[Rfam]
RNA sequence: UAGAACGACCAGGGGGGCUGGAGAAUUGGCCGGCUGAGAUAGUACACCUUUGUACUGACCCUUUCACCUGAUCCGGAUAAUGCCGGCGUAGGAAGGACUUGUGGUUUCUUU
Numbered sequence: 001u002a003g004a005a006c007g008a009c010c011a012g013g014g015g016g017g018c019u020g021g022a023g024a025a026u027u028g029g030c031c032g033g034c035u036g037a038g039a040u041a042g043u044a045c046a047c048c049u050u051u052g053u054a055c056u057g058a059c060c061c062u063u064u065c066a067c068c069u070g071a072u073c074c075g076g077a078u079a080a081u082g083c084c085g086g087c088g089u090a091g092g093a094a095g096g097a098c099u100u101g102u103g104g105u106u107u108c109u110u111u
Stems, first nucleotide, its partner, number of pairs: 007098001009096002011062004017034005041056005067092004073086004

Rfam assigns this 111-nucleotide sequence from Shimazuella alba to the family "TPP riboswitch aptamer (THI element)". Taxonomically the source falls in Shimazuella (Bacteria, Bacillati, Bacillota, Bacilli). The match comes from Rfam's covariance-model search (69 bits).